[Rfam]
The family of this 62-nucleotide sequence is "Pseudomonas sRNA P36". For this family Rfam cites "Identification of 17 Pseudomonas aeruginosa sRNAs and prediction of sRNA-encoding genes in 10 diverse pathogens using the bioinformatic tool sRNAPredict2" (Livny et al., Nucleic Acids Res, 2006). The family's consensus secondary structure was predicted with RNAalifold. It is annotated as a small RNA.

RNA sequence: CAGCUGUUACCCCACAUCAACAUCGCGUAACAAAAGCCGGGUUCAUCGGUAACGAUGACCCG
Numbered sequence: 001c002a003g004c005u006g007u008u009a010c011c012c013c014a015c016a017u018c019a020a021c022a023u024c025g026c027g028u029a030a031c032a033a034a035a036g037c038c039g040g041g042u043u044c045a046u047c048g049g050u051a052a053c054g055a056u057g058a059c060c061c062g
Base pairs, nucleotide, nucleotide: 005032006031007030008029009028010027038062039061040060041059042058043057046055047054048053